[Rfam]
RNA sequence: AGAGUCAGCGAGGUGGUUGCAGGUGGCAGAUAGCCAACCUGAGGAAAGUCCGGGCUCCCGAAAGACCAGACUUGCUGGGUAACGCCCAGUGCAGGUGACUGUGAGGAUAGUGCCACAGAAACAUACCGCCGAUGGAGCUAUUUCUGGCUCACAGGUAAGGGUGCAAGGGUGUGGUAAGAGCGCACCAGCAGCAUCGAGAGGUGCUGGCUCGGUAAACCCCGGUUGGGAGCAAGGCUGAUGGAACCUGGGUUGGUCUUUUUCCCGGUUCCGCGAUCGAAACCGCUAGAGGCGACUGGUAACAGGCGUCCCAGAUAGAUAACCGCCCUGUUGGUUGACCCCAACUGACAGAACAGAACCCGGCUUAUGUCUGACUCUCUCC
Numbered sequence: 001a002g003a004g005u006c007a008g009c010g011a012g013g014u015g016g017u018u019g020c021a022g023g024u025g026g027c028a029g030a031u032a033g034c035c036a037a038c039c040u041g042a043g044g045a046a047a048g049u050c051c052g053g054g055c056u057c058c059c060g061a062a063a064g065a066c067c068a069g070a071c072u073u074g075c076u077g078g079g080u081a082a083c084g085c086c087c088a089g090u091g092c093a094g095g096u097g098a099c100u101g102u103g104a105g106g107a108u109a110g111u112g113c114c115a116c117a118g119a120a121a122c123a124u125a126c127c128g129c130c131g132a133u134g135g136a137g138c139u140a141u142u143u144c145u146g147g148c149u150c151a152c153a154g155g156u157a158a159g160g161g162u163g164c165a166a167g168g169g170u171g172u173g174g175u176a177a178g179a180g181c182g183c184a185c186c187a188g189c190a191g192c193a194u195c196g197a198g199a200g201g202u203g204c205u206g207g208c209u210c211g212g213u214a215a216a217c218c219c220c221g222g223u224u225g226g227g228a229g230c231a232a233g234g235c236u237g238a239u240g241g242a243a244c245c246u247g248g249g250u251u252g253g254u255c256u257u258u259u260u261c262c263c264g265g266u267u268c269c270g271c272g273a274u275c276g277a278a279a280c281c282g283c284u285a286g287a288g289g290c291g292a293c294u295g296g297u298a299a300c301a302g303g304c305g306u307c308c309c310a311g312a313u314a315g316a317u318a319a320c321c322g323c324c325c326u327g328u329u330g331g332u333u334g335a336c337c338c339c340a341a342c343u344g345a346c347a348g349a350a351c352a353g354a355a356c357c358c359g360g361c362u363u364a365u366g367u368c369u370g371a372c373u374c375u376c377u378c379c
Stems, first nucleotide, its partner, number of pairs: 001375008011365001012324007020041005026035001046363003050360005055229004064257002069224003073221002075089005090104001091102004105219002110217002112213003126160002128156003133151003168186006188208001189206007233281002236278001240269006248262002252258001288307004293302003
Dot-bracket structure: ((((((((..((((((((.(((((.(........).)))))....[[[.[[[[[((((.....[[...(((.(((((((.....)))))(((((....)))).)((...(((((...........(((((..(((.............)))..)))..)).......((((((.......)))))).((((((((....))))))).)..)))..))))))))).))))...((.(...((((((..((..(...]])..)).))))))........).))......((((.(((....))).))))..........)))))))...............................]]]]]]]].)..))))))))....
RNA: Bacterial RNase P class A
Organism: Neosynechococcus sphagnicola